[Rfam]
RNA sequence: UUGGGUGACCGGGCCCCUCUGGCGGAUGUGGCGGCACAUUCGCGAUGUCGGCACUGAUC
Numbered sequence: 001u002u003g004g005g006u007g008a009c010c011g012g013g014c015c016c017c018u019c020u021g022g023c024g025g026a027u028g029u030g031g032c033g034g035c036a037c038a039u040u041c042g043c044g045a046u047g048u049c050g051g052c053a054c055u056g057a058u059c
Stems, first nucleotide, its partner, number of pairs: 006053002009051004022043008
RNA: terC RNA